[Rfam]
RNA sequence: CAACUUUUCCUAGUUUCGUAAAACUAGGUGGUGCGGAUGGGAUAACUCCCGCCGAGUUUCUUGUUUUCUCGUACUCAAAACAAGUGGCGAGCCUGAGU
Numbered sequence: 001c002a003a004c005u006u007u008u009c010c011u012a013g014u015u016u017c018g019u020a021a022a023a024c025u026a027g028g029u030g031g032u033g034c035g036g037a038u039g040g041g042a043u044a045a046c047u048c049c050c051g052c053c054g055a056g057u058u059u060c061u062u063g064u065u066u067u068c069u070c071g072u073a074c075u076c077a078a079a080a081c082a083a084g085u086g087g088c089g090a091g092c093c094u095g096a097g098u
Stems, first nucleotide, its partner, number of pairs: 009028006016022001038051005053071004060084006
Dot-bracket structure: ........((((((.(.....))))))).........(((((....))))).[[[[...((((((..]]]].......))))))..............
RNA: wcaG RNA